Small nucleolar RNA SNORD77: a 65-nucleotide RNA sequence from Equus caballus. The literature on the family includes a 2004 paper in Curr Biol by Tycowski et al., "Guide RNAs with 5' caps and novel box C/D snoRNA-like domains for modification of snRNAs in metazoa". The base pairs follow the family's consensus structure, which was predicted with RNAalifold. About the family: U77 belongs to the C/D family of snoRNAs. Lineage of the source: Eukaryota > Opisthokonta > Amniota > Laurasiatheria > Equus.

RNA sequence: UUACUGUGAUGGUUGUAUAGCUCAGAUUGAAUCAUGAAGAGAUAUACCAUUUAUCUAAUGUAAAA
Numbered sequence: 001u002u003a004c005u006g007u008g009a010u011g012g013u014u015g016u017a018u019a020g021c022u023c024a025g026a027u028u029g030a031a032u033c034a035u036g037a038a039g040a041g042a043u044a045u046a047c048c049a050u051u052u053a054u055c056u057a058a059u060g061u062a063a064a065a
Stems, first nucleotide, its partner, number of pairs: 001063004006035005013025003040052004